[Rfam]
Shown here is a 103-nucleotide sequence from Smittium culicis, a member of the family "Small nucleolar RNA R38". Gene Ontology terms of the family: RNA processing and nucleolus. The literature on the family includes a 2003 paper in Nucleic Acids Res by Chen et al., "The high diversity of snoRNAs in plants: identification and comparative study of 120 snoRNA genes from Oryza sativa". Pairs were carried over by alignment from the consensus structure, which was predicted with PFOLD. About the family: snoR38 is a C/D box small nucleolar RNA conserved across yeast, human, Arabidopsis and rice. It is encoded in the intron of elongation factor-1 gamma in both pombe and cerevisiae. snoR38 guides the methylation of 2'-O-ribose sites in 28S rRNA.
RNA sequence: AAUGGUCAUACAAUGAUGAAUUAGUUUAUUAAACAGUUAUCCCUGUCUGAAUUAUAGCAAAGAUCUAUAAUCGUGUGGAUAUUUUAUUCAUUCUGAAAUCAAU
Numbered sequence: 001a002a003u004g005g006u007c008a009u010a011c012a013a014u015g016a017u018g019a020a021u022u023a024g025u026u027u028a029u030u031a032a033a034c035a036g037u038u039a040u041c042c043c044u045g046u047c048u049g050a051a052u053u054a055u056a057g058c059a060a061a062g063a064u065c066u067a068u069a070a071u072c073g074u075g076u077g078g079a080u081a082u083u084u085u086a087u088u089c090a091u092u093c094u095g096a097a098a099u100c101a102a103u
Base pairs, nucleotide, nucleotide: 001103003101004100005099006098